[Rfam]
Rfam assigns this 61-nucleotide sequence from Clostridium pasteurianum to the family "Fluoride riboswitch aptamer (crcB RNA motif)".
Its family is annotated with response to fluoride and positive regulation of gene expression in the Gene Ontology.
RNA sequence: GUAAAAAUAGGUGAUGGAGUUCACCUUUAAGUGCUGAAAUGCUGAUGACUCCUACAGAUUU
Numbered sequence: 001g002u003a004a005a006a007a008u009a010g011g012u013g014a015u016g017g018a019g020u021u022c023a024c025c026u027u028u029a030a031g032u033g034c035u036g037a038a039a040u041g042c043u044g045a046u047g048a049c050u051c052c053u054a055c056a057g058a059u060u061u
Stems, first nucleotide, its partner, number of pairs: 010025004016052006033042002